[Rfam]
RNA: Plastid-psbA-1 3UTR RNA
Organism: Scrophularia buergeriana
RNA sequence: UCGAAGCUCCAACAAAUGGAUAAUACUUUGUCUUAGUGUAUAGGAGUGUUAGAAAAAAGAAUAUAUCAAUAUUAAGGAGAAAUAAACUUUUUCUUGUUCUAUCAAGAGGGUUUAUUGCUCCUUAAU
Numbered sequence: 001u002c003g004a005a006g007c008u009c010c011a012a013c014a015a016a017u018g019g020a021u022a023a024u025a026c027u028u029u030g031u032c033u034u035a036g037u038g039u040a041u042a043g044g045a046g047u048g049u050u051a052g053a054a055a056a057a058a059g060a061a062u063a064u065a066u067c068a069a070u071a072u073u074a075a076g077g078a079g080a081a082a083u084a085a086a087c088u089u090u091u092u093c094u095u096g097u098u099c100u101a102u103c104a105a106g107a108g109g110g111u112u113u114a115u116u117g118c119u120c121c122u123u124a125a126u
Stems, first nucleotide, its partner, number of pairs: 008020003074123006081116005087110003092107004